[Rfam]
RNA sequence: UCAUACACUGGGCAAACCCGGUGAAAACCGGGGGCGCAAAGCCGUGGGUCUAAGGUGCAAAUCUGCGUUAUGAUUGCCAGGCUGCAAGU
Dot-bracket structure: ...........((...((((((....))))))...))..((((.((((((....((((......))))...)))..)))))))......
Numbered sequence: 001u002c003a004u005a006c007a008c009u010g011g012g013c014a015a016a017c018c019c020g021g022u023g024a025a026a027a028c029c030g031g032g033g034g035c036g037c038a039a040a041g042c043c044g045u046g047g048g049u050c051u052a053a054g055g056u057g058c059a060a061a062u063c064u065g066c067g068u069u070a071u072g073a074u075u076g077c078c079a080g081g082c083u084g085c086a087a088g089u
Stems, first nucleotide, its partner, number of pairs: 012037002017032006040083004045079003048074003055068004